Overview:
This 252-nucleotide sequence belongs to the Rfam family "ARRPOF RNA". By type it is a small RNA.
RNA sequence: UUAAAUCUUGCCGUUAUAUUUAGUUACAAAAUUUAUGUUCUAGCAGGACAUAGCCGUUAUGCGCGAAGCGGUGUAGCGUCACUUUGAUGGCGGUACUAUGAAUUGAUGCAAGGUGUGGAGCGACCUUAAACAGUUCUGGUGGUGCUCUGAAUGGAGUGCUCUACUGAGAUUAUAAAAUAGAAGGUAAGCUAUUAUCUCUUACAACAGGGCAGGGCUUGUUGGAAUAGGCGGUAAAGUCUAUGGUAGAGUAGU
Numbered sequence: 001u002u003a004a005a006u007c008u009u010g011c012c013g014u015u016a017u018a019u020u021u022a023g024u025u026a027c028a029a030a031a032u033u034u035a036u037g038u039u040c041u042a043g044c045a046g047g048a049c050a051u052a053g054c055c056g057u058u059a060u061g062c063g064c065g066a067a068g069c070g071g072u073g074u075a076g077c078g079u080c081a082c083u084u085u086g087a088u089g090g091c092g093g094u095a096c097u098a099u100g101a102a103u104u105g106a107u108g109c110a111a112g113g114u115g116u117g118g119a120g121c122g123a124c125c126u127u128a129a130a131c132a133g134u135u136c137u138g139g140u141g142g143u144g145c146u147c148u149g150a151a152u153g154g155a156g157u158g159c160u161c162u163a164c165u166g167a168g169a170u171u172a173u174a175a176a177a178u179a180g181a182a183g184g185u186a187a188g189c190u191a192u193u194a195u196c197u198c199u200u201a202c203a204a205c206a207g208g209g210c211a212g213g214g215c216u217u218g219u220u221g222g223a224a225u226a227g228g229c230g231g232u233a234a235a236g237u238c239u240a241u242g243g244u245a246g247a248g249u250a251g252u
Stems, first nucleotide, its partner, number of pairs: 007188006034052008054071005073096003077092005111126004117137005144215006157250009166198005176193005202221005224241006